[Rfam]
RNA sequence: AGACGGUCAUCUAAACCAGCAGUGAAGCAUGUUGUUUAAAUAGAUGACCCACAAAGAAUCUUACCAAUAUUUGAUAUUCUUAUAAAUUAUAUUUUUAUUAAUUUAUAUUCUUUUAUUAACAGGCGUUACAUGGCUGUCUUCAGUUCUUGUUGUCAGACGUUUAGUUAAGUCUUACGAAAGAACGCAACCCUCUAUUUGUAGUUUUAAUGUACAAAAAAAUAACAUUAAGUAACUAAAAAAAGAUUUAUAUAUAUAUAUAAAUCUUAGUUAUUUAAUAUGAGGACCAAGACAAGUCAUCAUGACCUUUAUAUAUUGGGCUAUAGACGUGCCACAAGAGUUUAAGCAAUAAGUAACAAAUUUAAUAAAAAGAGUUAAUCUAUAACUUAAACUACGUACGGAUAAGACUCUGAAACUCGAGUAUUUGAAGUAGGAAUUGCUAGUAAUCGUGGAUCACUAUGCUACGGUGAAUAAUAUACUAGAUGGUGUACUAA
Numbered sequence: 001a002g003a004c005g006g007u008c009a010u011c012u013a014a015a016c017c018a019g020c021a022g023u024g025a026a027g028c029a030u031g032u033u034g035u036u037u038a039a040a041u042a043g044a045u046g047a048c049c050c051a052c053a054a055a056g057a058a059u060c061u062u063a064c065c066a067a068u069a070u071u072u073g074a075u076a077u078u079c080u081u082a083u084a085a086a087u088u089a090u091a092u093u094u095u096u097a098u099u100a101a102u103u104u105a106u107a108u109u110c111u112u113u114u115a116u117u118a119a120c121a122g123g124c125g126u127u128a129c130a131u132g133g134c135u136g137u138c139u140u141c142a143g144u145u146c147u148u149g150u151u152g153u154c155a156g157a158c159g160u161u162u163a164g165u166u167a168a169g170u171c172u173u174a175c176g177a178a179a180g181a182a183c184g185c186a187a188c189c190c191u192c193u194a195u196u197u198g199u200a201g202u203u204u205u206a207a208u209g210u211a212c213a214a215a216a217a218a219a220u221a222a223c224a225u226u227a228a229g230u231a232a233c234u235a236a237a238a239a240a241a242g243a244u245u246u247a248u249a250u251a252u253a254u255a256u257a258u259a260a261a262u263c264u265u266a267g268u269u270a271u272u273u274a275a276u277a278u279g280a281g282g283a284c285c286a287a288g289a290c291a292a293g294u295c296a297u298c299a300u301g302a303c304c305u306u307u308a309u310a311u312a313u314u315g316g317g318c319u320a321u322a323g324a325c326g327u328g329c330c331a332c333a334a335g336a337g338u339u340u341a342a343g344c345a346a347u348a349a350g351u352a353a354c355a356a357a358u359u360u361a362a363u364a365a366a367a368a369g370a371g372u373u374a375a376u377c378u379a380u381a382a383c384u385u386a387a388a389c390u391a392c393g394u395a396c397g398g399a400u401a402a403g404a405c406u407c408u409g410a411a412a413c414u415c416g417a418g419u420a421u422u423u424g425a426a427g428u429a430g431g432a433a434u435u436g437c438u439a440g441u442a443a444u445c446g447u448g449g450a451u452c453a454c455u456a457u458g459c460u461a462c463g464g465u466g467a468a469u470a471a472u473a474u475a476c477u478a479g480a481u482g483g484u485g486u487a488c489u490a491a
Stems, first nucleotide, its partner, number of pairs: 001489002003486003007483007019437005024332001027329007034321002041054001043052001064316007077119002082116005089102001090097002122305002125303004131299002133294003136290004143183006149158003161174001163172002189282004194252002197249004204241002208239001255273001257271004262266001336390007349378002353372002358367003396427001401422002404419004443465007
Source information: The record is a 491-nucleotide part of an RNA, which matches "Bacterial small subunit ribosomal RNA" in Rfam. Clan: SSU clan. The family's consensus secondary structure is taken from published work. Gene Ontology terms of the family: structural constituent of ribosome and ribosome.